[Rfam]
RNA: Mu-gpT-DE RNA
RNA sequence: CCUUGACAGUUGUAUUUUGCAACUGACACUAGCCAAGACAAGGAGACACACAUG
Numbered sequence: 001c002c003u004u005g006a007c008a009g010u011u012g013u014a015u016u017u018u019g020c021a022a023c024u025g026a027c028a029c030u031a032g033c034c035a036a037g038a039c040a041a042g043g044a045g046a047c048a049c050a051c052a053u054g
Stems, first nucleotide, its partner, number of pairs: 002042004007025005